[Rfam]
Cyano-1 RNA: a 70-nucleotide RNA from Calothrix sp. 336/3.
RNA sequence: GGGUGUGUGAGGAGCGAACCAGAAAGAGCACCGAGACGAAACACGGCCAGUCGUCGGUGCUCUUUCUGAU
Numbered sequence: 001g002g003g004u005g006u007g008u009g010a011g012g013a014g015c016g017a018a019c020c021a022g023a024a025a026g027a028g029c030a031c032c033g034a035g036a037c038g039a040a041a042c043a044c045g046g047c048c049a050g051u052c053g054u055c056g057g058u059g060c061u062c063u064u065u066c067u068g069a070u
Stems, first nucleotide, its partner, number of pairs: 022066007032056003035052003